[Rfam]
RNA sequence: UAUUACCUUAAAGCGCCGGGACCCCUUUUGGGGUUGACGAGGUGGAGGUUUAUCGAGGUAUCGGCGGAUGCCUCCCGGCUUUUCGCGGCCGUUAAAGGCGUCGGACAAAACCGAAGAGCAAUCUUCGGGACAAAGGGCGCCGGGCGAAUAA
Numbered sequence: 001u002a003u004u005a006c007c008u009u010a011a012a013g014c015g016c017c018g019g020g021a022c023c024c025c026u027u028u029u030g031g032g033g034u035u036g037a038c039g040a041g042g043u044g045g046a047g048g049u050u051u052a053u054c055g056a057g058g059u060a061u062c063g064g065c066g067g068a069u070g071c072c073u074c075c076c077g078g079c080u081u082u083u084c085g086c087g088g089c090c091g092u093u094a095a096a097g098g099c100g101u102c103g104g105a106c107a108a109a110a111c112c113g114a115a116g117a118g119c120a121a122u123c124u125u126c127g128g129g130a131c132a133a134a135g136g137g138c139g140c141c142g143g144g145c146g147a148a149u150a151a
Stems, first nucleotide, its partner, number of pairs: 020035006044075005053064004076091005097141006111128007